[Rfam]
RNA sequence: GGCUGCGGGCGAAGCGAAGAUCCACCGGGACGAGUCUGGUCGUCGUGUCCGGGUGGGGAGCCAAUGACGAAACCGGCGUCCUCGGGC
Dot-bracket structure: (.(((.(((((..((......(((((.((........[[[[[[[....)).)))))...))....]]]]]..]]..))))).))).)

The family of this 87-nucleotide RNA from Actinoplanes sp. OR16 is "c-di-GMP-II-GAG riboswitch aptamer". It scores 45 bits against the family's covariance model. NCBI's taxonomy places the organism under Bacteria, Actinomycetes, Micromonosporales, Micromonosporaceae, Actinoplanes. Gene Ontology terms of the family: regulation of gene expression and cyclic-di-GMP binding. A reference for the family is Weinberg et al. (2017), "Bioinformatic analysis of riboswitch structures uncovers variant classes with altered ligand specificity", Proc Natl Acad Sci U S A. The family's consensus secondary structure is taken from published work.